The record is a 63-nucleotide RNA sequence from Calothrix sp. NIES-3974, which matches "Nitrogen stress-induced RNA 1" in Rfam. Lineage of the source: Bacteria > Bacillati > Cyanobacteriota > Nostocales > Calothrix. For this family Rfam cites "Heterocyst-specific transcription of NsiR1, a non-coding RNA encoded in a tandem array of direct repeats in cyanobacteria" (Ionescu et al., J Mol Biol, 2010).

RNA sequence: UGGUAGAUGCACCCUGAUAACCUACUCCUCUGGUUAAUUUCCAAUUAACUAGGGGAUUUUUGU
Numbered sequence: 001u002g003g004u005a006g007a008u009g010c011a012c013c014c015u016g017a018u019a020a021c022c023u024a025c026u027c028c029u030c031u032g033g034u035u036a037a038u039u040u041c042c043a044a045u046u047a048a049c050u051a052g053g054g055g056a057u058u059u060u061u062g063u
Stems, first nucleotide, its partner, number of pairs: 002013003027055011